[Rfam]
RNA: Small nucleolar RNA SNORA33
Organism: Strix occidentalis
RNA sequence: CCACCAGUUCAAUGUGUCUGCUCAACCUGAAUAUGUUUUGCAGAGCAUAUUUUAAAAUGACACUGGUAAAGUAAAGCCACAGUACGAGCCUUGAAGACUUCGUAGUCUUUGAGGUCCCAAGAGAUGGCUACAUCU
Numbered sequence: 001c002c003a004c005c006a007g008u009u010c011a012a013u014g015u016g017u018c019u020g021c022u023c024a025a026c027c028u029g030a031a032u033a034u035g036u037u038u039u040g041c042a043g044a045g046c047a048u049a050u051u052u053u054a055a056a057a058u059g060a061c062a063c064u065g066g067u068a069a070a071g072u073a074a075a076g077c078c079a080c081a082g083u084a085c086g087a088g089c090c091u092u093g094a095a096g097a098c099u100u101c102g103u104a105g106u107c108u109u110u111g112a113g114g115u116c117c118c119a120a121g122a123g124a125u126g127g128c129u130a131c132a133u134c135u
Stems, first nucleotide, its partner, number of pairs: 003067005017044005076128004088115007096107003